Rfam assigns this 493-nucleotide part of an RNA from Desmophyllum pertusum to the family "Eukaryotic large subunit ribosomal RNA". The organism belongs to Desmophyllum, within Eukaryota.
[Rfam]
RNA sequence: CCCUCCGAAGUUUCCCUCAGGAUAGCUGGAACUCAGUAAUGCAGUUUUAUCAGGUAAAGCGAAUGAUUAGAGGCCUUAGGGUUAAAACAACCUUAACCUAUUCUCAAACUUUAAAUUGGUAAGAUGUCCGACUUGCUUGAUUGAAGCCGGACUUGGAAUGCGAGUACCUAGUGGGCCAUUUUUGGUAAGCAGAACUGGCGAUGCGGGAUGAACCGAACGCAGAGUUAAGGUGCCAAAGUCGACGCUCAUCAGACCCCACAAAAGGUGUUGGUUGCUAUAGACAGCAGGACGGUGGCCAUGGAAGUCGGAACCCGCUAAGGAGUGUGUAACAACUCACCUGCCGAAGCAACUAGCCCUGAAAAUGAAUGGCGCUCAAGCGUCGCACCUAUACUCUGCCGUCGGGGCGAGUGCGAAGCCCCGACGAGUAGGAGGGCGCGGUGGUCGUGACGCAGCCUUUGGCGCGAGCCUGGGUGAAACGGCCUCCGGUGCAGAU
Numbered sequence: 001c002c003c004u005c006c007g008a009a010g011u012u013u014c015c016c017u018c019a020g021g022a023u024a025g026c027u028g029g030a031a032c033u034c035a036g037u038a039a040u041g042c043a044g045u046u047u048u049a050u051c052a053g054g055u056a057a058a059g060c061g062a063a064u065g066a067u068u069a070g071a072g073g074c075c076u077u078a079g080g081g082u083u084a085a086a087a088c089a090a091c092c093u094u095a096a097c098c099u100a101u102u103c104u105c106a107a108a109c110u111u112u113a114a115a116u117u118g119g120u121a122a123g124a125u126g127u128c129c130g131a132c133u134u135g136c137u138u139g140a141u142u143g144a145a146g147c148c149g150g151a152c153u154u155g156g157a158a159u160g161c162g163a164g165u166a167c168c169u170a171g172u173g174g175g176c177c178a179u180u181u182u183u184g185g186u187a188a189g190c191a192g193a194a195c196u197g198g199c200g201a202u203g204c205g206g207g208a209u210g211a212a213c214c215g216a217a218c219g220c221a222g223a224g225u226u227a228a229g230g231u232g233c234c235a236a237a238g239u240c241g242a243c244g245c246u247c248a249u250c251a252g253a254c255c256c257c258a259c260a261a262a263a264g265g266u267g268u269u270g271g272u273u274g275c276u277a278u279a280g281a282c283a284g285c286a287g288g289a290c291g292g293u294g295g296c297c298a299u300g301g302a303a304g305u306c307g308g309a310a311c312c313c314g315c316u317a318a319g320g321a322g323u324g325u326g327u328a329a330c331a332a333c334u335c336a337c338c339u340g341c342c343g344a345a346g347c348a349a350c351u352a353g354c355c356c357u358g359a360a361a362a363u364g365a366a367u368g369g370c371g372c373u374c375a376a377g378c379g380u381c382g383c384a385c386c387u388a389u390a391c392u393c394u395g396c397c398g399u400c401g402g403g404g405c406g407a408g409u410g411c412g413a414a415g416c417c418c419c420g421a422c423g424a425g426u427a428g429g430a431g432g433g434c435g436c437g438g439u440g441g442u443c444g445u446g447a448c449g450c451a452g453c454c455u456u457u458g459g460c461g462c463g464a465g466c467c468u469g470g471g472u473g474a475a476a477c478g479g480c481c482u483c484c485g486g487u488g489c490a491g492a493u
Stems, first nucleotide, its partner, number of pairs: 001433006011024001013022003028168002031165003045124008057112001058110002064106003069101001071099003076096006083089001126152005132146003175199004180194005204215003219396005225390001229386003238383001240382001243379003263357003267354010284341005290314003296308002315319001320335001324333002397423009434488001436485003440481006452472002458467003